[Rfam]
Rfam assigns this 87-nucleotide RNA from Arabidopsis thaliana to the family "MIR781 microRNA precursor family".
Pairs were carried over by alignment from the consensus structure, which was predicted with RNAalifold.
Rfam links the family to the GO terms RISC complex and miRNA-mediated post-transcriptional gene silencing.
The family has 3 seed sequences and 4 matches in Rfam 15.1.
The sequence is in the family's curated seed alignment.
Taxonomically the source falls in Arabidopsis (Eukaryota, Streptophytina, Mesangiospermae, Gunneridae).
RNA sequence: AUUUAGAGUUUUCUGGAUACUUAAAAGUUAAUAUCGAAGAAGCCCUCUCUUUGUUAGUAACUAAUAAGUAUCCAGAAAACUCUAAUU
Numbered sequence: 001a002u003u004u005a006g007a008g009u010u011u012u013c014u015g016g017a018u019a020c021u022u023a024a025a026a027g028u029u030a031a032u033a034u035c036g037a038a039g040a041a042g043c044c045c046u047c048u049c050u051u052u053g054u055u056a057g058u059a060a061c062u063a064a065u066a067a068g069u070a071u072c073c074a075g076a077a078a079a080c081u082c083u084a085a086u087u
Base pairs, nucleotide, nucleotide: 003085004084005083006082007081008080009079010078011077012076013075014074015073016072017071018070019069020068021067022066023065026062027061028060029059030058032056033055035053037051038050039049040048